[Rfam]
RNA sequence: UUGUCUGAGGAGCGCUGCGACGGGACGCCCGCCAGGCUCAGAUCAUGGCACUUACAUACAACGGCGCUCAGUCAUU
Numbered sequence: 001u002u003g004u005c006u007g008a009g010g011a012g013c014g015c016u017g018c019g020a021c022g023g024g025a026c027g028c029c030c031g032c033c034a035g036g037c038u039c040a041g042a043u044c045a046u047g048g049c050a051c052u053u054a055c056a057u058a059c060a061a062c063g064g065c066g067c068u069c070a071g072u073c074a075u076u
Base pairs, nucleotide, nucleotide: 003043004042005041006040007039008038021031022030023029024028
RNA: SAH (S-adenosyl-L-homocysteine) riboswitch aptamer